[Rfam]
RNA sequence: UUGUGAGGUAGAGGCGCGAUAUUUAUUAGUGCUUAGUGGAGUCCGAGAAGACGAAGAAGCUAUGCAGAAGGAAAUGUCGCCGAAGUAUGUAAUGAGUUCUCGUCAUUAUGUGCUGGGUCUGUAAUGAAUAAUUACAGGACUGUCUUAAUAAGUUUCCCGAUUUAUUAAGAUGUGCUAUCUCUCAG
Numbered sequence: 001u002u003g004u005g006a007g008g009u010a011g012a013g014g015c016g017c018g019a020u021a022u023u024u025a026u027u028a029g030u031g032c033u034u035a036g037u038g039g040a041g042u043c044c045g046a047g048a049a050g051a052c053g054a055a056g057a058a059g060c061u062a063u064g065c066a067g068a069a070g071g072a073a074a075u076g077u078c079g080c081c082g083a084a085g086u087a088u089g090u091a092a093u094g095a096g097u098u099c100u101c102g103u104c105a106u107u108a109u110g111u112g113c114u115g116g117g118u119c120u121g122u123a124a125u126g127a128a129u130a131a132u133u134a135c136a137g138g139a140c141u142g143u144c145u146u147a148a149u150a151a152g153u154u155u156c157c158c159g160a161u162u163u164a165u166u167a168a169g170a171u172g173u174g175c176u177a178u179c180u181c182u183c184a185g
Base pairs, nucleotide, nucleotide: 006180007179008178009177010176011175016080017079018078019077020076021075022074023073024072031065032064034062035061036060037059084114085113086112087111088110089109090108091107092106093105094104095103115141116140118138119137120136121135122134123133124132125131143170144169145168146167147166148165149164150163151162152161
A member of the RNA family "Lysine riboswitch aptamer" from Peribacillus loiseleuriae, 185 nucleotides long. Rfam describes the family as follows. Riboswitches are metabolite binding domains within certain messenger RNAs that serve as precision sensors for their corresponding targets. Taxonomically the source falls in Peribacillus (Bacteria, Bacillati, Bacillota, Bacillaceae).